[Rfam]
Nucleotides: 085
Stems, first nucleotide, its partner, number of pairs: 001015004007037005016028003039063005048081005
Number, partner (000 for none) and nucleotide at each position: 001015c002014c003013c004012u005000u006000g007037c008036u009035a010034c011033c012004g013003g014002g015001g016028c017027c018026g019000g020000a021000a022000a023000u024000g025000c026018c027017g028016g029000a030000c031000g032000g033011g034010g035009u036008a037007g038000a039063c040062g041061c042060g043059g044000a045000u046000u047000a048081c049080u050079g051078g052077g053000c054000g055000a056000g057000u058000g059043c060042c061041g062040c063039g064000a065000u066000u067000c068000a069000g070000g071000a072000a073000a074000a075000c076000c077052c078051c079050c080049a081048g082000a083000g084000g085000c